Description: The family of this 91-nucleotide sequence from Flavimobilis marinus is "ZMP/ZTP riboswitch aptamer (pfl RNA motif)". Pairs were carried over by alignment from the consensus structure, which is taken from published work. Rfam 15.1 lists 3,295 matches to the family in 2,545 species. Taxonomically the source falls in Flavimobilis (Bacteria, Actinomycetes, Micrococcales, Jonesiaceae).

RNA sequence: UGAGCGCGCCGCGACUGGCGCAUCAGGUGGGUCACCACCGGGGAGCGGCAUCUUCAUCCUCGACUACGGGUCGUCCGCCUGGGCCCGGGUC
Numbered sequence: 001u002g003a004g005c006g007c008g009c010c011g012c013g014a015c016u017g018g019c020g021c022a023u024c025a026g027g028u029g030g031g032u033c034a035c036c037a038c039c040g041g042g043g044a045g046c047g048g049c050a051u052c053u054u055c056a057u058c059c060u061c062g063a064c065u066a067c068g069g070g071u072c073g074u075c076c077g078c079c080u081g082g083g084c085c086c087g088g089g090u091c
Stems, first nucleotide, its partner, number of pairs: 003054002006051001008049005015042002017079004027038004068086005